[Rfam]
Shown here is a 51-nucleotide sequence from Thauera linaloolentis, a member of the family "Guanidine-II riboswitch aptamer (mini-ykkC)". The base pairs follow the family's consensus structure, which is taken from published work.
Nucleotides: 051
Base pairs, nucleotide, nucleotide: 003018005016006015007014008013038051039050040049041048042047
Number, partner (000 for none) and nucleotide at each position: 001000c002000a003018u004000c005016g006015a007014g008013g009000a010000c011000g012000a013008c014007c015006u016005c017000a018003g019000c020000c021000u022000g023000c024000g025000g026000g027000c028000c029000a030000u031000c032000u033000a034000c035000c036000g037000u038051c039050c040049g041048g042047g043000a044000c045000g046000a047042c048041c049040c050039g051038g